A member of the RNA family "FMN riboswitch aptamer (RFN element)" from Salinisphaera shabanensis, 146 nucleotides long.
The source organism's lineage runs through Bacteria, Pseudomonadota, Salinisphaeraceae, Salinisphaera and Salinisphaera shabanensis.
The base pairs follow the family's consensus structure, which is taken from published work.

[Rfam]
RNA sequence: CACCGUCUUCAGGGCGGGGUGUAAUUCCCCACCGGCGGUAUGUCGUACUCGACGAGCCCGCGAGCGCCUCGAUUCAUCGUCGAGGGUCAGCAGAUCUGGUGCGAUGCCAGAGCCGACGGUUAGAGUCCGGAUGAAAGAAGACGCAC
Numbered sequence: 001c002a003c004c005g006u007c008u009u010c011a012g013g014g015c016g017g018g019g020u021g022u023a024a025u026u027c028c029c030c031a032c033c034g035g036c037g038g039u040a041u042g043u044c045g046u047a048c049u050c051g052a053c054g055a056g057c058c059c060g061c062g063a064g065c066g067c068c069u070c071g072a073u074u075c076a077u078c079g080u081c082g083a084g085g086g087u088c089a090g091c092a093g094a095u096c097u098g099g100u101g102c103g104a105u106g107c108c109a110g111a112g113c114c115g116a117c118g119g120u121u122a123g124a125g126u127c128c129g130g131a132u133g134a135a136a137g138a139a140g141a142c143g144c145a146c
Stems, first nucleotide, its partner, number of pairs: 004143007017029003031126002033115002035061004056113002064091002095111005117129003